[Rfam]
RNA sequence: AACGCAUGAUGACAAACUGUUUCGGUCCCAAAUGAUCACCUGAUUACUACCCAUUGAGAUCAACUGAUGUU
Numbered sequence: 001a002a003c004g005c006a007u008g009a010u011g012a013c014a015a016a017c018u019g020u021u022u023c024g025g026u027c028c029c030a031a032a033u034g035a036u037c038a039c040c041u042g043a044u045u046a047c048u049a050c051c052c053a054u055u056g057a058g059a060u061c062a063a064c065u066g067a068u069g070u071u
Stems, first nucleotide, its partner, number of pairs: 001071004

Notes:
The record is a 71-nucleotide sequence from Kryptolebias marmoratus, which matches "Small nucleolar RNA SNORD73" in Rfam. For this family Rfam cites "A novel snoRNA (U73) is encoded within the introns of the human and mouse ribosomal protein S3a genes" (Rebane et al., Gene, 1998). The organism belongs to Kryptolebias, within Eukaryota. The family has 25 seed sequences and 769 matches in Rfam 15.1. A search with the family's covariance model found it, with a score of 55 bits.